[Rfam]
RNA sequence: GUCAGGAACCCCGCAGUAAAUGCGGAGGCUGGAAAUUAGUUGAGCAUUUGAGCUCAGGCUGCUCCAAGCCUGCUUGACUGGCCUUAGCACACAUGUGCUCCGUUGGGAAGGUCAUGCUACCUACAGAUGCUUGCCUUAAUCUGUAGCUCUAGCGCGAGUGGUGAAAAGUCCUGAGGGGCGGGACGCUACUGCUCGCACGACAAGCCUUUCUAAUCUUGGCGAAGGGCACUGUAC
Numbered sequence: 001g002u003c004a005g006g007a008a009c010c011c012c013g014c015a016g017u018a019a020a021u022g023c024g025g026a027g028g029c030u031g032g033a034a035a036u037u038a039g040u041u042g043a044g045c046a047u048u049u050g051a052g053c054u055c056a057g058g059c060u061g062c063u064c065c066a067a068g069c070c071u072g073c074u075u076g077a078c079u080g081g082c083c084u085u086a087g088c089a090c091a092c093a094u095g096u097g098c099u100c101c102g103u104u105g106g107g108a109a110g111g112u113c114a115u116g117c118u119a120c121c122u123a124c125a126g127a128u129g130c131u132u133g134c135c136u137u138a139a140u141c142u143g144u145a146g147c148u149c150u151a152g153c154g155c156g157a158g159u160g161g162u163g164a165a166a167a168g169u170c171c172u173g174a175g176g177g178g179c180g181g182g183a184c185g186c187u188a189c190u191g192c193u194c195g196c197a198c199g200a201c202a203a204g205c206c207u208u209u210c211u212a213a214u215c216u217u218g219g220c221g222a223a224g225g226g227c228a229c230u231g232u233a234c
Stems, first nucleotide, its partner, number of pairs: 001078006008071001010028002012025001081220003086099005102214011117152002121146008129230001131228001134225001136224002154196009166187001168184006

Shown here is a 234-nucleotide RNA from Ktedonosporobacter rubrisoli, a member of the family "HNH endonuclease-associated RNA and ORF (HEARO) RNA". The family's RNA type in Rfam is non-coding RNA gene. NCBI's taxonomy places the organism under Bacteria, Chloroflexota, Ktedonobacterales, Ktedonosporobacteraceae, Ktedonosporobacter.